[Rfam]
RNA sequence: AAUGAAGAAAUUGUGCGUAUCUGCUUUGUUCUAUUAAUAAUGUACUUUGCUCGAAAGUGUUCUCUGCUAAAUUAAUAUUAUUGGGGGAAGAUGAGCAAUUGUGUUUCAUCUAUUUCACUUGAACUUUUCAAUAAUUAUUUUACCCACAUCU
Numbered sequence: 001a002a003u004g005a006a007g008a009a010a011u012u013g014u015g016c017g018u019a020u021c022u023g024c025u026u027u028g029u030u031c032u033a034u035u036a037a038u039a040a041u042g043u044a045c046u047u048u049g050c051u052c053g054a055a056a057g058u059g060u061u062c063u064c065u066g067c068u069a070a071a072u073u074a075a076u077a078u079u080a081u082u083g084g085g086g087g088a089a090g091a092u093g094a095g096c097a098a099u100u101g102u103g104u105u106u107c108a109u110c111u112a113u114u115u116c117a118c119u120u121g122a123a124c125u126u127u128u129c130a131a132u133a134a135u136u137a138u139u140u141u142a143c144c145c146a147c148a149u150c151u
Stems, first nucleotide, its partner, number of pairs: 004067001006065003010061001015045001017043004084145003088141007098132004
The family of this 151-nucleotide RNA sequence from Capsicum baccatum is "small nucleolar RNA snoR135". The literature on the family includes a 2009 paper in Nucleic Acids Res by Chen and Wu, "Mining small RNA sequencing data: a new approach to identify small nucleolar RNAs in Arabidopsis". A search with the family's covariance model found it, with a score of 94 bits.